[Rfam]
Rfam assigns this 127-nucleotide RNA sequence from Populus trichocarpa to the family "MIR480 microRNA precursor family". The organism belongs to Populus, within Eukaryota. A reference for the family is Lu et al. (2005), "Novel and mechanical stress-responsive MicroRNAs in Populus trichocarpa that are absent from Arabidopsis", Plant Cell. Rfam links the family to the GO terms RISC complex and miRNA-mediated post-transcriptional gene silencing.
RNA sequence: UAGUUUGUCUAGGUUAGAUCCUCAUCUAGUUGCGUCAGAUCCUCACUUGAAUGCUCAUAACCUUUAGUUUCUACAAGUCCAGCUGCAUCACUUUGAAGAGAUGUUGUGUUUUAAGGAAGCACAAAAA
Numbered sequence: 001u002a003g004u005u006u007g008u009c010u011a012g013g014u015u016a017g018a019u020c021c022u023c024a025u026c027u028a029g030u031u032g033c034g035u036c037a038g039a040u041c042c043u044c045a046c047u048u049g050a051a052u053g054c055u056c057a058u059a060a061c062c063u064u065u066a067g068u069u070u071c072u073a074c075a076a077g078u079c080c081a082g083c084u085g086c087a088u089c090a091c092u093u094u095g096a097a098g099a100g101a102u103g104u105u106g107u108g109u110u111u112u113a114a115g116g117a118a119g120c121a122c123a124a125a126a127a
Stems, first nucleotide, its partner, number of pairs: 004125004009119001014114002018110001023108003027103002030100002